[Rfam]
RNA sequence: CUUGGGGUCGGCGAAGCGGUGCGGGUCGUCUCCGAACUCGGCGAGCACCCGGGCGCCCAGGACCGGCCCGAGCCCGGGCUGG
Numbered sequence: 001c002u003u004g005g006g007g008u009c010g011g012c013g014a015a016g017c018g019g020u021g022c023g024g025g026u027c028g029u030c031u032c033c034g035a036a037c038u039c040g041g042c043g044a045g046c047a048c049c050c051g052g053g054c055g056c057c058c059a060g061g062a063c064c065g066g067c068c069c070g071a072g073c074c075c076g077g078g079c080u081g082g
Base pairs, nucleotide, nucleotide: 008044009043010042012040013039018038019037020036022034023033024032025031055079056078057077060075061074063072

Description
A member of the RNA family "Actinobacteria sRNA Ms_AS-4" from Modestobacter caceresii, 82 nucleotides long. A search with the family's covariance model found it, with a score of 73 bits. Rfam 15.1 lists 207 matches to the family in 131 species. The base pairs follow the family's consensus structure. For this family Rfam cites "Identification of small RNAs in Mycobacterium smegmatis using heterologous Hfq" (Li et al., RNA, 2013). By type it is a small RNA. Lineage of the source: Bacteria > Bacillati > Geodermatophilales > Geodermatophilaceae > Modestobacter.